[Rfam]
RNA sequence: CGUGAUAUACCCUGUAGAUCCGGGCUUUUGUAGUUUACUUAAGUCAGAAGCUCGUUUCUACAGGUAUUUCACGG
Numbered sequence: 001c002g003u004g005a006u007a008u009a010c011c012c013u014g015u016a017g018a019u020c021c022g023g024g025c026u027u028u029u030g031u032a033g034u035u036u037a038c039u040u041a042a043g044u045c046a047g048a049a050g051c052u053c054g055u056u057u058c059u060a061c062a063g064g065u066a067u068u069u070c071a072c073g074g
Stems, first nucleotide, its partner, number of pairs: 002072004007067001010064002016059003021054010
Rfam assigns this 74-nucleotide RNA sequence from Arctia plantaginis to the family "mir-10 microRNA precursor family". A reference for the family is Lee and Ambros (2001), "An extensive class of small RNAs in Caenorhabditis elegans", Science. The base pairs follow the family's consensus structure, which was predicted with PFOLD.